RNA sequence: CCGGGAGUCGGAUGGACGUUUGCGUUCGCCAAUCUGGUCAGGUCCGGAAGGAAGCAGCCACAACGGAUUGCGGCGGGUCAUUCGGCUCCUUCAUC
Numbered sequence: 001c002c003g004g005g006a007g008u009c010g011g012a013u014g015g016a017c018g019u020u021u022g023c024g025u026u027c028g029c030c031a032a033u034c035u036g037g038u039c040a041g042g043u044c045c046g047g048a049a050g051g052a053a054g055c056a057g058c059c060a061c062a063a064c065g066g067a068u069u070g071c072g073g074c075g076g077g078u079c080a081u082u083c084g085g086c087u088c089c090u091u092c093a094u095c
Base pairs, nucleotide, nucleotide: 004089005088006087007086008085009084010083011082012081013080014079017075018074019073020072024068025067026066027065028064035060036059037058038057043052044051045050
Rfam assigns this 95-nucleotide sequence from Novosphingobium aureum to the family "Bacterial small signal recognition particle RNA". The family's consensus secondary structure is taken from published work. The literature on the family includes a 2016 paper in Proc Natl Acad Sci U S A by Righetti et al., "Temperature-responsive in vitro RNA structurome of Yersinia pseudotuberculosis". Rfam describes the family as follows. The signal recognition particle (SRP) is a universally conserved ribonucleoprotein involved in the co-translational targeting of proteins to membranes.